[Rfam]
Shown here is an 80-nucleotide RNA, a member of the family "eL15-Euryarchaeota ribosomal protein leader". Rfam classes the family as a cis-regulatory leader. Pairs were carried over by alignment from the consensus structure, which is taken from published work. A reference for the family is Eckert and Weinberg (2020), "Discovery of 20 novel ribosomal leader candidates in bacteria and archaea", BMC Microbiol.
RNA sequence: CCUGCCUGUGCAGGUCGGGAUGUGACCGGCGAGACCUUCGGUCUCGUGGAGGCGGCACCGCCGCCGGGUUGAACCACGCA
Number, nucleotide and partner (000 for none) at each position: 001c014002c013003u012004g011005c010006c000007u000008g000009u000010g005011c004012a003013g002014g001015u000016c000017g075018g074019g000020a000021u000022g000023u000024g070025a069026c068027c067028g000029g000030c000031g000032a000033g000034a000035c000036c000037u000038u000039c000040g000041g000042u000043c000044u000045c000046g000047u000048g000049g000050a000051g000052g000053c000054g000055g000056c000057a000058c000059c000060g000061c000062c000063g000064c000065c000066g000067g027068g026069u025070u024071g000072a000073a000074c018075c017076a000077c000078g000079c000080a000